[Rfam]
RNA: Bradyrhizobiaceae sRNA BjrC174
Organism: Tardiphaga robiniae
RNA sequence: GUCACGGGAACGUCAGGUGAAUCUUAUUGCCGCCAAAUUUUGGCCCAUCGGACGCCCUUCUGGAUUGCGACAAGAAGAUACUGCGUCGGGUCCGGUUCUUCCGGUCUCGGAUUCCUCAGCCCCCAGCCCCCCGCGGUCGUUGGGAUCGGACCCUGCGCAGGAAGUUAAUCCCCACUGGGCCAACGCAAGUUGGUCCUUUU
Number, nucleotide and partner (000 for none) at each position: 001g000002u000003c000004a000005c000006g000007g000008g000009a000010a000011c000012g000013u000014c000015a000016g000017g000018u000019g000020a000021a000022u000023c000024u000025u000026a000027u000028u000029g000030c000031c000032g000033c000034c000035a166036a165037a000038u050039u000040u000041u047042g000043g000044c000045c000046c000047a041048u000049c000050g038051g000052a000053c000054g000055c000056c000057c000058u000059u000060c000061u000062g000063g000064a000065u000066u000067g000068c000069g000070a000071c000072a000073a000074g000075a000076a000077g000078a000079u000080a000081c160082u159083g158084c157085g156086u155087c000088g000089g152090g151091u150092c149093c148094g147095g146096u145097u144098c143099u142100u000101c000102c139103g138104g137105u136106c135107u000108c133109g132110g131111a000112u000113u000114c000115c000116u000117c000118a000119g127120c126121c000122c000123c000124c000125a000126g120127c119128c000129c000130c000131c110132c109133g108134c000135g106136g105137u104138c103139g102140u000141u000142g099143g098144g097145a096146u095147c094148g093149g092150a091151c090152c089153c000154u000155g086156c085157g084158c083159a082160g081161g000162a000163a000164g000165u036166u035167a000168a000169u000170c000171c000172c000173c000174a000175c000176u000177g196178g195179g194180c193181c192182a191183a190184c189185g000186c000187a000188a000189g184190u183191u182192g181193g180194u179195c178196c177197u000198u000199u000200u000